Rfam assigns this 131-nucleotide RNA sequence from Coptis chinensis to the family "Plastid-psbA-1 3UTR RNA". The family's RNA type in Rfam is cis-regulatory element. A reference for the family is Richter et al. (2023), "Retrograde signaling in plants: A critical review focusing on the GUN pathway and beyond", Plant Commun. NCBI's taxonomy places the organism under Eukaryota, Euphyllophyta, Spermatophyta, Magnoliopsida, Coptis.
[Rfam]
RNA sequence: UUGAAGUUCCAUCCACAAAUGGCUAAGACUUAGGUCUUAGUGUAUGCGCCCGAUUUUAGUGUAUAUGAGUCAUUGAAGUUGCGGGACUAAUACCAAAAUUCUUGUUCACAAGAAAGCGGUAUUAGUCCCGU
Numbered sequence: 001u002u003g004a005a006g007u008u009c010c011a012u013c014c015a016c017a018a019a020u021g022g023c024u025a026a027g028a029c030u031u032a033g034g035u036c037u038u039a040g041u042g043u044a045u046g047c048g049c050c051c052g053a054u055u056u057u058a059g060u061g062u063a064u065a066u067g068a069g070u071c072a073u074u075g076a077a078g079u080u081g082c083g084g085g086a087c088u089a090a091u092a093c094c095a096a097a098a099u100u101c102u103u104g105u106u107c108a109c110a111a112g113a114a115a116g117c118g119g120u121a122u123u124a125g126u127c128c129c130g131u
Base pairs, nucleotide, nucleotide: 009022010021011020012019081131082130083129084128085127086126087125088124089123090122091121092120093119099114100113101112102111103110